[Rfam]
RNA sequence: GGCCGAUGAUGCUAACAAUGCUCCUAUGGUCUUUGACUAAGAGCUGAGGAUUCUCUAAGAAUGUUUCCCAAGAGCUGAGGCC
Numbered sequence: 001g002g003c004c005g006a007u008g009a010u011g012c013u014a015a016c017a018a019u020g021c022u023c024c025u026a027u028g029g030u031c032u033u034u035g036a037c038u039a040a041g042a043g044c045u046g047a048g049g050a051u052u053c054u055c056u057a058a059g060a061a062u063g064u065u066u067c068c069c070a071a072g073a074g075c076u077g078a079g080g081c082c
Stems, first nucleotide, its partner, number of pairs: 001082004
Dot-bracket structure: ((((..........................................................................))))
Rfam assigns this 82-nucleotide sequence to the family "Small nucleolar RNA Z168/Z174". Rfam 15.1 lists 65 matches to the family in 15 species. The sequence is in the family's curated seed alignment. It is annotated as a C/D-box small nucleolar RNA. A reference for the family is Chen et al. (2003), "The high diversity of snoRNAs in plants: identification and comparative study of 120 snoRNA genes from Oryza sativa", Nucleic Acids Res.